RNA sequence: AAAAAGGGCUUCUGUCGAGAGUGGCACACGUAAGGUAGCUCGUUUGCUGUUCGUCUGGAAUCAACAUCGAGAGAUCUCAGAAGCAUAAUUUUUUGGUAUCUGGGCAGCUGGUGAUCGUUGGUCCUGGUUGCCCCU
Numbered sequence: 001a002a003a004a005a006g007g008g009c010u011u012c013u014g015u016c017g018a019g020a021g022u023g024g025c026a027c028a029c030g031u032a033a034g035g036u037a038g039c040u041c042g043u044u045u046g047c048u049g050u051u052c053g054u055c056u057g058g059a060a061u062c063a064a065c066a067u068c069g070a071g072a073g074a075u076c077u078c079a080g081a082a083g084c085a086u087a088a089u090u091u092u093u094u095g096g097u098a099u100c101u102g103g104g105c106a107g108c109u110g111g112u113g114a115u116c117g118u119u120g121g122u123c124c125u126g127g128u129u130g131c132c133c134c135u
Stems, first nucleotide, its partner, number of pairs: 008084005013026005028054003032050001034048005056079003060075003102133004107129001108127004113123004
U11 spliceosomal RNA: a 135-nucleotide RNA from Tursiops truncatus. Rfam classes the family as a spliceosomal small nuclear RNA. It scores 93 bits against the family's covariance model. The organism belongs to Tursiops, within Eukaryota.